[Rfam]
RNA sequence: AUGCCGUAAUCGCUGAAUUCCCGGAUCCGGGAAACGGGGGAACCUAGAGUUGGCUGACAACUGCCUUGGGGUGAAUCAUGAUUUCUUUCAUGAAGGGCUACUCUCAGUCCGAAUCCGACAGCUAACCUCGUAAGCGUUCAGAGAGACCUA
Numbered sequence: 001a002u003g004c005c006g007u008a009a010u011c012g013c014u015g016a017a018u019u020c021c022c023g024g025a026u027c028c029g030g031g032a033a034a035c036g037g038g039g040g041a042a043c044c045u046a047g048a049g050u051u052g053g054c055u056g057a058c059a060a061c062u063g064c065c066u067u068g069g070g071g072u073g074a075a076u077c078a079u080g081a082u083u084u085c086u087u088u089c090a091u092g093a094a095g096g097g098c099u100a101c102u103c104u105c106a107g108u109c110c111g112a113a114u115c116c117g118a119c120a121g122c123u124a125a126c127c128u129c130g131u132a133a134g135c136g137u138u139c140a141g142a143g144a145g146a147c148c149u150a
Base pairs, nucleotide, nucleotide: 011136012135013134014133018033019032020031021030022029023028034131035130036129037128038127039126044068069116070115071114077092078091079090080089095110096109097108098107

A member of the RNA family "c-di-AMP riboswitch aptamer (ydaO/yuaA leader)" from Paenibacillus mucilaginosus, 150 nucleotides long. The match comes from Rfam's covariance-model search (99 bits). The organism belongs to Paenibacillus mucilaginosus, within Bacteria.